[Rfam]
A member of the RNA family "mir-50 microRNA precursor family" from Steinernema hermaphroditum, 74 nucleotides long. A search with the family's covariance model found it, with a score of 51 bits. The organism belongs to Steinernema, within Eukaryota. The family is grouped with related families in Rfam's "mir-50 clan". For this family Rfam cites "Improved annotation of C. elegans microRNAs by deep sequencing reveals structures associated with processing by Drosha and Dicer" (Warf et al., RNA, 2011).

RNA sequence: UAGGGUCUGAUAUGUCUGGUAUUCUUGGGUUGAGCUCGUGUACAACCAGACAUAUUAGACAUAUCCGAUCCUGG
Numbered sequence: 001u002a003g004g005g006u007c008u009g010a011u012a013u014g015u016c017u018g019g020u021a022u023u024c025u026u027g028g029g030u031u032g033a034g035c036u037c038g039u040g041u042a043c044a045a046c047c048a049g050a051c052a053u054a055u056u057a058g059a060c061a062u063a064u065c066c067g068a069u070c071c072u073g074g
Stems, first nucleotide, its partner, number of pairs: 009065014028047004
Description:
Rfam links the family to the GO terms RISC complex and miRNA-mediated post-transcriptional gene silencing.